[Rfam]
RNA sequence: AGACACACACCUGUAGACGCGAGCUUGUGUGGCCAGUCGCCACAAGUUCGGAUCUACGGGUUUGUGGCAG
Numbered sequence: 001a002g003a004c005a006c007a008c009a010c011c012u013g014u015a016g017a018c019g020c021g022a023g024c025u026u027g028u029g030u031g032g033c034c035a036g037u038c039g040c041c042a043c044a045a046g047u048u049c050g051g052a053u054c055u056a057c058g059g060g061u062u063u064g065u066g067g068c069a070g
Base pairs, nucleotide, nucleotide: 002068004066005065006064007063010060011059012058015055016054017053020050021049022048023047024046025045026044027043028042029041
RNA: mir-10 microRNA precursor family
Organism: Scleropages formosus